[Rfam]
RNA: c-di-GMP-I riboswitch aptamer
Organism: Peptoclostridium acidaminophilum
RNA sequence: UUUAAUAAUUGGCAAACUUGUCUAAAGGCAGGGACGCAAAGCCAUGGGUCUAAGGAAUAAUUCUAUGACUGGAAUAUUCUAUGAUUGCCAGGUUGCACAA
Numbered sequence: 001u002u003u004a005a006u007a008a009u010u011g012g013c014a015a016a017c018u019u020g021u022c023u024a025a026a027g028g029c030a031g032g033g034a035c036g037c038a039a040a041g042c043c044a045u046g047g048g049u050c051u052a053a054g055g056a057a058u059a060a061u062u063c064u065a066u067g068a069c070u071g072g073a074a075u076a077u078u079c080u081a082u083g084a085u086u087g088c089c090a091g092g093u094u095g096c097a098c099a100a
Stems, first nucleotide, its partner, number of pairs: 012037002017032006040094004045090003048085003055079004